Rfam assigns this 47-nucleotide RNA sequence to the family "nhaA-I RNA". Rfam's curators put it in the seed alignment. About the family: Acidobacteria, Alphaproteobacteria, Betaproteobacteria and Gammaproteobacteria, Verrucomicrobia, cand. division NC10. The base pairs follow the family's consensus structure, which is taken from published work.
RNA sequence: GGGUCCAGCCGAAAGGCUGGAGGAUAUGGAUGGUCGGGCCGCCAUCC
Numbered sequence: 001g002g003g004u005c006c007a008g009c010c011g012a013a014a015g016g017c018u019g020g021a022g023g024a025u026a027u028g029g030a031u032g033g034u035c036g037g038g039c040c041g042c043c044a045u046c047c
Stems, first nucleotide, its partner, number of pairs: 005020006028047007